[Rfam]
RNA sequence: GAUCCGGGACGACCUGGAUCUGCCUUUUCAGUACAGGGACGGCCCUA
Numbered sequence: 001g002a003u004c005c006g007g008g009a010c011g012a013c014c015u016g017g018a019u020c021u022g023c024c025u026u027u028u029c030a031g032u033a034c035a036g037g038g039a040c041g042g043c044c045c046u047a
Stems, first nucleotide, its partner, number of pairs: 001020008035046004
The record is a 47-nucleotide RNA sequence from Alcaligenes sp. EGD-AK7, which matches "Guanidine-II riboswitch aptamer (mini-ykkC)" in Rfam. Rfam's curators write: Simpler in structure and has fewer highly conserved nucleotide positions than the ykkC-yxkD leader.